[Rfam]
RNA sequence: GUCUUGUCAGUGAUGUUUUUUUAAAAAAAUGUCUGAACUUAUGAAAAUACACUGAUUCCACGUCUUAACUGAGACGAGAC
Numbered sequence: 001g002u003c004u005u006g007u008c009a010g011u012g013a014u015g016u017u018u019u020u021u022u023a024a025a026a027a028a029a030u031g032u033c034u035g036a037a038c039u040u041a042u043g044a045a046a047a048u049a050c051a052c053u054g055a056u057u058c059c060a061c062g063u064c065u066u067a068a069c070u071g072a073g074a075c076g077a078g079a080c
Stems, first nucleotide, its partner, number of pairs: 002079007

Notes
Shown here is an 80-nucleotide sequence from Lepisosteus oculatus, a member of the family "Small nucleolar RNA SNORD72". The source organism's lineage runs through Eukaryota, Bilateria, Deuterostomia, Vertebrata and Lepisosteus. The literature on the family includes a 2001 paper in EMBO J by Huttenhofer et al., "RNomics: an experimental approach that identifies 201 candidates for novel, small, non-messenger RNAs in mouse". It scores 63 bits against the family's covariance model. snoRNA HBII-240 belongs to the CD family of snoRNAs. It is the human orthologue of the mouse MBII-240 and is predicted to guide 2'O-ribose methylation of the large 28S rRNA at residue U4590.